The family of this 79-nucleotide RNA sequence from Musa balbisiana is "Small nucleolar RNA Z199".
Taxonomically the source falls in Musa (Eukaryota, Viridiplantae, Tracheophyta, Zingiberales).
The match comes from Rfam's covariance-model search (72 bits).
By type it is a C/D-box small nucleolar RNA.
Pairs were carried over by alignment from the consensus structure, which was predicted with PFOLD.
Rfam describes the family as follows. snoZ199 is a C/D box small nucleolar RNA, which acts as a methylation guide RNA for sites on 18S and 25S rRNA. Rice snoZ199 is reported to be homologous to Arabidopsis snoR13.
[Rfam]
RNA sequence: GGAUCAAGUGAUGAGUAAACUGCAACAAUAUGAUGGGAAUACUUCUCCAUGAUUCGUUGUAUUUAAGUCUCUGAUGAUA
Numbered sequence: 001g002g003a004u005c006a007a008g009u010g011a012u013g014a015g016u017a018a019a020c021u022g023c024a025a026c027a028a029u030a031u032g033a034u035g036g037g038a039a040u041a042c043u044u045c046u047c048c049a050u051g052a053u054u055c056g057u058u059g060u061a062u063u064u065a066a067g068u069c070u071c072u073g074a075u076g077a078u079a
Stems, first nucleotide, its partner, number of pairs: 002078001004077003035048003039044001